[Rfam]
RNA sequence: UAUUACUGUAAAGCGCCAGGGCUAUGACGUCCGAAACAAUCAUAGCUGACGAGGAGGAGGUUUAUCGAGUUUGAUCGGCGGAUGCCUCCCGGUUGUACAUCUCAACCGAAUGUGUUUAUUCGAAAGCAAAAAGGCAACUUUUUGUACAAGAAUAAAGACUAGAUGCCA
Numbered sequence: 001u002a003u004u005a006c007u008g009u010a011a012a013g014c015g016c017c018a019g020g021g022c023u024a025u026g027a028c029g030u031c032c033g034a035a036a037c038a039a040u041c042a043u044a045g046c047u048g049a050c051g052a053g054g055a056g057g058a059g060g061u062u063u064a065u066c067g068a069g070u071u072u073g074a075u076c077g078g079c080g081g082a083u084g085c086c087u088c089c090c091g092g093u094u095g096u097a098c099a100u101c102u103c104a105a106c107c108g109a110a111u112g113u114g115u116u117u118a119u120u121c122g123a124a125a126g127c128a129a130a131a132a133g134g135c136a137a138c139u140u141u142u143u144g145u146a147c148a149a150g151a152a153u154a155a156a157g158a159c160u161a162g163a164u165g166c167c168a
Stems, first nucleotide, its partner, number of pairs: 020047008056089005065078004090108006113158001115156005127144007
This 168-nucleotide RNA sequence from Gracilibacillus kekensis belongs to the Rfam family "glmS glucosamine-6-phosphate activated ribozyme aptamer". Lineage of the source: Bacteria > Bacillota > Caryophanales > Bacillaceae > Gracilibacillus. From the family's description: This entry contains a glucosamine-6-phosphate activated ribozyme that is found in the mRNA for GlmS. GlmS is an enzyme that uses fructose-6-phosphate and glutamine to generate glucosamine-6-phosphate. The ribozyme catalyses self cleavage of the glmS mRNA that is thought to regulate GlmS activity. The match comes from Rfam's covariance-model search (113 bits). The literature on the family includes a 2004 paper in Nature by Winkler et al., "Control of gene expression by a natural metabolite-responsive ribozyme". By type it is a riboswitch.